[Rfam]
RNA sequence: UGAGCCGGCCAGGCGGCCGCGGUCCCCGCGUGCGGGGGCCGAGGAAAGUCCGGACUCCGCAGAGCAGGGUGGUGGGUAACGCCCACCCGGGGUGACCCGCGGGACAGUGCCACAGAGAACAGACCGCCGUCGGGCCGCGAGGUCCGGCGGUGAGGGUGAAACGGUGGUGUAAGAGACCACCAGCACCCCAGGUGACUGGGGUGGCUCGGUAAACCCCACCCGGAGCAAGAUCAAGAGGGUGCGCGCGAGCGCACCUGCGGAGACGUCCGAGGGCUGCUCGCCCGAGUCUCCGGGUAGAUCGCACCAGGCCGUUGGUGACAGCGGUCGCAGAUGGAUGGUCGCCACCCGCCGUUCGCGGCGGGUACAGAAUCCGGCUUACCGGCCGGCUCAUCCC
Numbered sequence: 001u002g003a004g005c006c007g008g009c010c011a012g013g014c015g016g017c018c019g020c021g022g023u024c025c026c027c028g029c030g031u032g033c034g035g036g037g038g039c040c041g042a043g044g045a046a047a048g049u050c051c052g053g054a055c056u057c058c059g060c061a062g063a064g065c066a067g068g069g070u071g072g073u074g075g076g077u078a079a080c081g082c083c084c085a086c087c088c089g090g091g092g093u094g095a096c097c098c099g100c101g102g103g104a105c106a107g108u109g110c111c112a113c114a115g116a117g118a119a120c121a122g123a124c125c126g127c128c129g130u131c132g133g134g135c136c137g138c139g140a141g142g143u144c145c146g147g148c149g150g151u152g153a154g155g156g157u158g159a160a161a162c163g164g165u166g167g168u169g170u171a172a173g174a175g176a177c178c179a180c181c182a183g184c185a186c187c188c189c190a191g192g193u194g195a196c197u198g199g200g201g202u203g204g205c206u207c208g209g210u211a212a213a214c215c216c217c218a219c220c221c222g223g224a225g226c227a228a229g230a231u232c233a234a235g236a237g238g239g240u241g242c243g244c245g246c247g248a249g250c251g252c253a254c255c256u257g258c259g260g261a262g263a264c265g266u267c268c269g270a271g272g273g274c275u276g277c278u279c280g281c282c283c284g285a286g287u288c289u290c291c292g293g294g295u296a297g298a299u300c301g302c303a304c305c306a307g308g309c310c311g312u313u314g315g316u317g318a319c320a321g322c323g324g325u326c327g328c329a330g331a332u333g334g335a336u337g338g339u340c341g342c343c344a345c346c347c348g349c350c351g352u353u354c355g356c357g358g359c360g361g362g363u364a365c366a367g368a369a370u371c372c373g374g375c376u377u378a379c380c381g382g383c384c385g386g387c388u389c390a391u392c393c394c
Stems, first nucleotide, its partner, number of pairs: 001390010012343007020041009046377003050374005055225004062279004067221005072086005087101001088099004102216002107214002109210003124155002126151011163181006183205001184203008229300004259291006271283004307326008
The record is a 394-nucleotide RNA sequence from Microlunatus kandeliicorticis, which matches "Bacterial RNase P class A" in Rfam.
The match comes from Rfam's covariance-model search (282 bits).
Rfam classes the family as a ribozyme.
NCBI's taxonomy places the organism under Bacteria, Bacillati, Propionibacteriales, Propionibacteriaceae, Microlunatus.